[Rfam]
RNA sequence: CCCCCUAGUCUCUGUAAGUUGCUUUGGAUAAAAGCGUCUGCUAAAUGACAAUAA
Dot-bracket structure: ............((((...((((((.....))))))..))).)...........
A member of the RNA family "UnaL2 LINE 3' element" from Acipenser ruthenus, 54 nucleotides long.